Small Cajal body specific RNA 21: a 139-nucleotide sequence.
Rfam classes the family as a small Cajal body RNA.
scaRNAs are a specific class of small nuclear RNAs which localise to the Cajal bodies and guide the modification of RNA polymerase II transcribed spliceosomal RNAs U1, U2, U4, U5 and U12. ACA68 (SCARNA21) is a member of the H/ACA class of snoRNAs that guide the sites of modification of uridines to pseudouridines. This snoRNA was identified by computational screening and its expression in mouse experimentally verified by Northern blot and primer extension analysis.
The literature on the family includes a 2002 paper in EMBO J by Darzacq et al., "Cajal body-specific small nuclear RNAs: a novel class of 2'-O-methylation and pseudouridylation guide RNAs".

RNA sequence: UGGCUUGGUUUCCUGGGGGGUGGGCUCAGUGCUCUCCACCCCCUCUCAGCUAAGCCUAGAGUAGAGAGGCCAGGUACGCACCUGGGUGGGAGAGGUGCUUCUGCAGGAGCCUUGCCUGGGCUGGCCUAGCCUCACAUUU
Numbered sequence: 001u002g003g004c005u006u007g008g009u010u011u012c013c014u015g016g017g018g019g020g021u022g023g024g025c026u027c028a029g030u031g032c033u034c035u036c037c038a039c040c041c042c043c044u045c046u047c048a049g050c051u052a053a054g055c056c057u058a059g060a061g062u063a064g065a066g067a068g069g070c071c072a073g074g075u076a077c078g079c080a081c082c083u084g085g086g087u088g089g090g091a092g093a094g095g096u097g098c099u100u101c102u103g104c105a106g107g108a109g110c111c112u113u114g115c116c117u118g119g120g121c122u123g124g125c126c127u128a129g130c131c132u133c134a135c136a137u138u139u
Stems, first nucleotide, its partner, number of pairs: 002056006015044010066133005072127003079119001088112003